[Rfam]
RNA sequence: AUCCGGAGUGACGACUGGCGCAGGUGGACCACCACCGGGGAGUCACAUGGGAGUUGCAUCGCCCGCCUGGGUGCACCCG
Number, nucleotide and partner (000 for none) at each position: 001a000002u000003c051004c050005g000006g048007a000008g046009u045010g044011a043012c042013g000014a000015c039016u038017g067018g066019c065020g064021c000022a000023g000024g035025u034026g033027g032028a000029c000030c000031a000032c027033c026034a025035c024036c000037g000038g016039g015040g000041a000042g012043u011044c010045a009046c008047a000048u006049g000050g004051g003052a000053g000054u000055u000056g074057c073058a072059u071060c070061g000062c000063c000064c020065g019066c018067c017068u000069g000070g060071g059072u058073g057074c056075a000076c000077c000078c000079g000
The record is a 79-nucleotide sequence from Knoellia subterranea, which matches "ZMP/ZTP riboswitch aptamer (pfl RNA motif)" in Rfam. The organism belongs to Knoellia subterranea, within Bacteria. The match comes from Rfam's covariance-model search (54 bits).